[Rfam]
RNA sequence: GCUACCGCCUCGAACUGUCGCAAUCCAAUGCGGCGUUCCCGAAAGGGAUAGGGGCGGUAGUUUAU
Numbered sequence: 001g002c003u004a005c006c007g008c009c010u011c012g013a014a015c016u017g018u019c020g021c022a023a024u025c026c027a028a029u030g031c032g033g034c035g036u037u038c039c040c041g042a043a044a045g046g047g048a049u050a051g052g053g054g055c056g057g058u059a060g061u062u063u064a065u
Stems, first nucleotide, its partner, number of pairs: 001061011016035007037048004
The family of this 65-nucleotide RNA sequence is "DUF3800-IX RNA".
About the family: Actinobacteria, Firmicutes (1 example), Nitrospirae, Proteobacteria, Verrucomicrobia (1 example).
The family's RNA type in Rfam is small RNA.
It is one of the family's seed sequences.